Rfam assigns this 107-nucleotide sequence from Glycine max to the family "MIR162_1 microRNA precursor family". The organism belongs to Glycine subgen. Soja, within Eukaryota. The family's consensus secondary structure was predicted with RNAalifold. The family is grouped with related families in Rfam's "MIR167 microRNA precursor clan". Rfam 15.1 lists 270 matches to the family in 158 species.

RNA sequence: GGUGAAGUCACUGGAGGCAGCGGUUCAUCGAUCUCUUCCUGAAUUUGGUUGUGGAAGAACACAAAGCAAGAAUCGGUCGAUAAACCUCUGCAUCCAGCGCUCACUUU
Numbered sequence: 001g002g003u004g005a006a007g008u009c010a011c012u013g014g015a016g017g018c019a020g021c022g023g024u025u026c027a028u029c030g031a032u033c034u035c036u037u038c039c040u041g042a043a044u045u046u047g048g049u050u051g052u053g054g055a056a057g058a059a060c061a062c063a064a065a066g067c068a069a070g071a072a073u074c075g076g077u078c079g080a081u082a083a084a085c086c087u088c089u090g091c092a093u094c095c096a097g098c099g100c101u102c103a104c105u106u107u
Stems, first nucleotide, its partner, number of pairs: 013095003018090003022086004027081007036072003